[Rfam]
This 139-nucleotide sequence from Candidatus Galacturonatibacter soehngenii belongs to the Rfam family "Ribosomal protein L10 leader". This family is a putative r-protein leader autoregulatory structure found in B. subtilis and other low-GC Gram-positive bacteria. It is located in the 5' untranslated regions of mRNAs encoding ribosomal proteins L10 and L12 (rplJ-rplL). A Rho-independent transcription terminator structure that is probably involved in regulation is included at the 3' end. The family's consensus secondary structure was predicted with CMfinder.
RNA sequence: UAUAAAAGCAAUUGACUGCCGAAGACAGUAGGUGCCGUAAGGCGUAAAUUGAGAAUGCCUACCGAGGAUGCUUAUAUAAUUUAAGUGACUUAUUAUAUAAUCUCUUUGUUUUCGGACAAAGAGAUUUUUUAUUCUUAAA
Numbered sequence: 001u002a003u004a005a006a007a008g009c010a011a012u013u014g015a016c017u018g019c020c021g022a023a024g025a026c027a028g029u030a031g032g033u034g035c036c037g038u039a040a041g042g043c044g045u046a047a048a049u050u051g052a053g054a055a056u057g058c059c060u061a062c063c064g065a066g067g068a069u070g071c072u073u074a075u076a077u078a079a080u081u082u083a084a085g086u087g088a089c090u091u092a093u094u095a096u097a098u099a100a101u102c103u104c105u106u107u108g109u110u111u112u113c114g115g116a117c118a119a120a121g122a123g124a125u126u127u128u129u130u131a132u133u134c135u136u137a138a139a
Stems, first nucleotide, its partner, number of pairs: 028062006034043003101124010
A search with the family's covariance model found it, with a score of 93 bits.